Description:
A member of the RNA family "GcvB RNA" from Arsenophonus nasoniae, 195 nucleotides long. A search with the family's covariance model found it, with a score of 98 bits.
RNA sequence: GCUUCCUAGGCCUGAAUGAAUCGCUAAGUAGUUAAUUUAUUUAAAAUUCUUGGCUUUAUGGAUGUGAUGUUGUGUUUGCAAAUUAUCUGGUUUUUCCAGGUUGGGUAGUUAAUACUACUAUUUUCACUCCUAUACAUUUACCUUGUCUGUCCAUAGUAAUUUUAUCGCGCCGUACUUAACGCGGCGUUUUUUUAU
Numbered sequence: 001g002c003u004u005c006c007u008a009g010g011c012c013u014g015a016a017u018g019a020a021u022c023g024c025u026a027a028g029u030a031g032u033u034a035a036u037u038u039a040u041u042u043a044a045a046a047u048u049c050u051u052g053g054c055u056u057u058a059u060g061g062a063u064g065u066g067a068u069g070u071u072g073u074g075u076u077u078g079c080a081a082a083u084u085a086u087c088u089g090g091u092u093u094u095u096c097c098a099g100g101u102u103g104g105g106u107a108g109u110u111a112a113u114a115c116u117a118c119u120a121u122u123u124u125c126a127c128u129c130c131u132a133u134a135c136a137u138u139u140a141c142c143u144u145g146u147c148u149g150u151c152c153a154u155a156g157u158a159a160u161u162u163u164a165u166c167g168c169g170c171c172g173u174a175c176u177u178a179a180c181g182c183g184g185c186g187u188u189u190u191u192u193u194a195u
Base pairs, nucleotide, nucleotide: 009055010054011053012052015051016050018049019048020047021046025043026042027041028040029039030038031037083103085101086100087099088098089097090096104119105118106117107116108115109114136165137164167187168186169185170184171183172182173181
Dot-bracket structure: ........((((..((.((((...(((((((.....)))))))..))))))))))...........................(.((((((.....)))))).)((((((....))))))................((..........................)).(((((((.......)))))))........
Overview
NCBI's taxonomy places the organism under Bacteria, Pseudomonadati, Pseudomonadota, Morganellaceae, Arsenophonus. A reference for the family is Sharma et al. (2007), "A small RNA regulates multiple ABC transporter mRNAs by targeting C/A-rich elements inside and upstream of ribosome-binding sites", Genes Dev. Pairs were carried over by alignment from the consensus structure, which is taken from published work. It is annotated as a non-coding RNA gene.